[Rfam]
RNA sequence: CAUCGUUGGCCUGCCAUUUGUAGGUGCAGUUCGAUCCGGAGUCAUGCAACGGGGACCCGGA
Numbered sequence: 001c002a003u004c005g006u007u008g009g010c011c012u013g014c015c016a017u018u019u020g021u022a023g024g025u026g027c028a029g030u031u032c033g034a035u036c037c038g039g040a041g042u043c044a045u046g047c048a049a050c051g052g053g054g055a056c057c058c059g060g061a
Base pairs, nucleotide, nucleotide: 004051005050006049007048008047010024011023012022013021014020035061036060037059038058039057041056042054043053

Source information: The record is a 61-nucleotide RNA sequence, which matches "Glutamine-II riboswitch aptamer" in Rfam. Rfam links the family to the GO term glutamine binding.